[Rfam]
RNA sequence: GGAGAGGUAGCGUAGUCUGGCCUAACGCGCGCGCCUGGAGAGCGCGUUACCCGCAAGGGUACGCGGGUUCGAAUCCCGCCCUCUCCG
Numbered sequence: 001g002g003a004g005a006g007g008u009a010g011c012g013u014a015g016u017c018u019g020g021c022c023u024a025a026c027g028c029g030c031g032c033g034c035c036u037g038g039a040g041a042g043c044g045c046g047u048u049a050c051c052c053g054c055a056a057g058g059g060u061a062c063g064c065g066g067g068u069u070c071g072a073a074u075c076c077c078g079c080c081c082u083c084u085c086c087g
Base pairs, nucleotide, nucleotide: 001086002085003084004083005082006081007080010028011027012026013025030046031045032044033043034042063079064078065077066076067075
RNA: tRNA